Rfam assigns this 114-nucleotide sequence from Polyorchis penicillatus to the family "Potassium channel RNA editing signal". The literature on the family includes a 2004 paper in Nat Struct Mol Biol by Bhalla et al., "Control of human potassium channel inactivation by editing of a small mRNA hairpin". Pairs were carried over by alignment from the consensus structure, which is taken from published work. The sequence is in the family's curated seed alignment.

[Rfam]
RNA sequence: UUAGGGUAUGGCGAUAUGGUGCCAAAAACAAUCCCUGGUAAACUAGUUGGUAGUAUUUGCUCAUUAAGUGGGGUAUUAGUGAUAGCUCUACCCGUACCUGUUAUAGUAUCGAAC
Numbered sequence: 001u002u003a004g005g006g007u008a009u010g011g012c013g014a015u016a017u018g019g020u021g022c023c024a025a026a027a028a029c030a031a032u033c034c035c036u037g038g039u040a041a042a043c044u045a046g047u048u049g050g051u052a053g054u055a056u057u058u059g060c061u062c063a064u065u066a067a068g069u070g071g072g073g074u075a076u077u078a079g080u081g082a083u084a085g086c087u088c089u090a091c092c093c094g095u096a097c098c099u100g101u102u103a104u105a106g107u108a109u110c111g112a113a114c
Base pairs, nucleotide, nucleotide: 002113005110007108008107009106011104013102014101015100016099018097021095022094037077038076039075040074050062